The record is a 146-nucleotide RNA sequence from Paraburkholderia panacisoli, which matches "Group II catalytic intron D1-D4-7" in Rfam. For this family Rfam cites "The ins and outs of group II introns" (Bonen and Vogel, Trends Genet, 2001). The pairing is the family consensus, mapped onto this sequence. About the family: Group II introns are found in rRNA, tRNA and mRNA of organelles in fungi, plants and protists, and also in mRNA in bacteria.
RNA sequence: CCUGCCGUACGACCGGCAGUUGUCUACCUGGACGUGCGUGACUGGUAACGGUCAGGUGCGAAGCUCCAGGGACAACGUCUCGUCGAAAGACGUCAUCACUGGCGACAGUGAGUGACGACGCUGCAAGCCGCAAUGCGGCGUGGAGG
Numbered sequence: 001c002c003u004g005c006c007g008u009a010c011g012a013c014c015g016g017c018a019g020u021u022g023u024c025u026a027c028c029u030g031g032a033c034g035u036g037c038g039u040g041a042c043u044g045g046u047a048a049c050g051g052u053c054a055g056g057u058g059c060g061a062a063g064c065u066c067c068a069g070g071g072a073c074a075a076c077g078u079c080u081c082g083u084c085g086a087a088a089g090a091c092g093u094c095a096u097c098a099c100u101g102g103c104g105a106c107a108g109u110g111a112g113u114g115a116c117g118a119c120g121c122u123g124c125a126a127g128c129c130g131c132a133a134u135g136c137g138g139c140g141u142g143g144a145g146g
Stems, first nucleotide, its partner, number of pairs: 002019006028069005033060005039054006082091003092116004100107002120139006